This 86-nucleotide sequence from Drosophila albomicans belongs to the Rfam family "mir-969 microRNA precursor family". The base pairs follow the family's consensus structure, which was predicted with RNAalifold. A reference for the family is Stark et al. (2007), "Systematic discovery and characterization of fly microRNAs using 12 Drosophila genomes", Genome Res. Rfam links the family to the GO terms miRNA-mediated post-transcriptional gene silencing and RISC complex.

RNA sequence: UUGUCAUCCGUGCGAGUUCCACUAAUCAAGUUUUGGGCGUAUUUGAAAUUCAAAAACUUGACACGUUGAGCUCGUAUGUGUGGCAG
Number, nucleotide and partner (000 for none) at each position: 001u086002u085003g084004u083005c082006a081007u080008c000009c078010g077011u000012g075013c074014g073015a072016g071017u070018u069019c068020c000021a066022c065023u000024a000025a000026u000027c060028a059029a058030g057031u056032u055033u054034u053035g000036g000037g000038c000039g000040u000041a000042u000043u000044u000045g000046a000047a000048a000049u000050u000051c000052a000053a034054a033055a032056a031057c030058u029059u028060g027061a000062c000063a000064c000065g022066u021067u000068g019069a018070g017071c016072u015073c014074g013075u012076a000077u010078g009079u000080g007081u006082g005083g004084c003085a002086g001